[Rfam]
RNA: Small nucleolar RNA SNORA22
Organism: Cervus elaphus
RNA sequence: CUGUUUAGUGAAUAAAAGAAAUACCGAGGUGUAGUUCCCUUGGCUUUGACCCUGUGCUAGAGUAAUGUCUGUUCUUUUCCUCUGCAUUGAAAGGACUAUUUAUCCUUUUAAAUGUAUUCAGAAAGUCAGCACAUUA
Dot-bracket structure: (..((.((.(.(......................).).)).))....)..........((((((.....)))))).....(((((((((((((((.......))))))).))))....))))..............
Numbered sequence: 001c002u003g004u005u006u007a008g009u010g011a012a013u014a015a016a017a018g019a020a021a022u023a024c025c026g027a028g029g030u031g032u033a034g035u036u037c038c039c040u041u042g043g044c045u046u047u048g049a050c051c052c053u054g055u056g057c058u059a060g061a062g063u064a065a066u067g068u069c070u071g072u073u074c075u076u077u078u079c080c081u082c083u084g085c086a087u088u089g090a091a092a093g094g095a096c097u098a099u100u101u102a103u104c105c106u107u108u109u110a111a112a113u114g115u116a117u118u119c120a121g122a123a124a125g126u127c128a129g130c131a132c133a134u135u136a
Stems, first nucleotide, its partner, number of pairs: 001048001004043002007040002010037001012035001059075006081122004085114004089109007